[Rfam]
RNA sequence: GUGCCUAGUCAGCCUGUUUGCAUGGCGAGCGGCACUAUCUCGUACGGGGGACUACAAUUGGGGUGAAUCCGGUCGUCCGACUGGUAGGGUCUGCCUUUCUUCCCGAACCCGUCAACUAACCUCGGAGGCUUACUCUACUUGAGAA
Numbered sequence: 001g002u003g004c005c006u007a008g009u010c011a012g013c014c015u016g017u018u019u020g021c022a023u024g025g026c027g028a029g030c031g032g033c034a035c036u037a038u039c040u041c042g043u044a045c046g047g048g049g050g051a052c053u054a055c056a057a058u059u060g061g062g063g064u065g066a067a068u069c070c071g072g073u074c075g076u077c078c079g080a081c082u083g084g085u086a087g088g089g090u091c092u093g094c095c096u097u098u099c100u101u102c103c104c105g106a107a108c109c110c111g112u113c114a115a116c117u118a119a120c121c122u123c124g125g126a127g128g129c130u131u132a133c134u135c136u137a138c139u140u141g142a143g144a145a
Base pairs, nucleotide, nucleotide: 003129004128005127010042045124046123047122048121049120052060061110062109063108069084070083071082072081087104088103089102
The family of this 145-nucleotide sequence from a Selenomonadales bacterium is "c-di-AMP riboswitch aptamer (ydaO/yuaA leader)". From the family's description: This family represents a conserved RNA structure found upstream of the ydaO and yuaA genes in Bacillus subtilis and related genes in other bacteria. The match comes from Rfam's covariance-model search (63 bits). Lineage of the source: Bacteria > Bacillati > Bacillota > Negativicutes > Selenomonadales.